SAM riboswitch aptamer (S box leader): a 91-nucleotide sequence from Glutamicibacter sp. BW77.
[Rfam]
RNA sequence: UAACCAUCCAGAGCGACUGAGAGACCUGGCUCGUAGACGUCGCAGCAACCACCCCGAGAGGGGCCGGUGCUACCGCCAGGACCGAUGGAGC
Number, nucleotide and partner (000 for none) at each position: 001u000002a000003a000004c088005c087006a086007u085008c084009c000010a000011g000012a000013g043014c042015g041016a040017c039018u000019g000020a000021g032022a031023g030024a000025c000026c079027u078028g077029g076030c023031u022032c021033g000034u000035a000036g000037a000038c000039g017040u016041c015042g014043c013044a071045g070046c069047a068048a000049c067050c066051a000052c062053c061054c060055c000056g000057a000058g000059a000060g054061g053062g052063g000064c000065c000066g050067g049068u047069g046070c045071u044072a000073c000074c000075g083076c029077c028078a027079g026080g000081a000082c000083c075084g008085a007086u006087g005088g004089a000090g000091c000
It scores 54 bits against the family's covariance model. Lineage of the source: Bacteria > Bacillati > Actinomycetota > Micrococcaceae > Glutamicibacter. The base pairs follow the family's consensus structure, which is taken from published work.